[Rfam]
Glycine riboswitch aptamer: a 98-nucleotide RNA from Duganella sp. Leaf126. The organism belongs to Duganella, within Bacteria.

RNA sequence: GGCUCAAACUCUGGAGAGCGAUUGCUGCCGCAAUCCACCGAAGGGGCGCACGGGACACUUCCCGUUAUCUCUCAGGUACCAAGGACAGAGGGGUUUGC
Numbered sequence: 001g002g003c004u005c006a007a008a009c010u011c012u013g014g015a016g017a018g019c020g021a022u023u024g025c026u027g028c029c030g031c032a033a034u035c036c037a038c039c040g041a042a043g044g045g046g047c048g049c050a051c052g053g054g055a056c057a058c059u060u061c062c063c064g065u066u067a068u069c070u071c072u073c074a075g076g077u078a079c080c081a082a083g084g085a086c087a088g089a090g091g092g093g094u095u096u097g098c
Stems, first nucleotide, its partner, number of pairs: 009090005020035004037077003040073002044071003050065004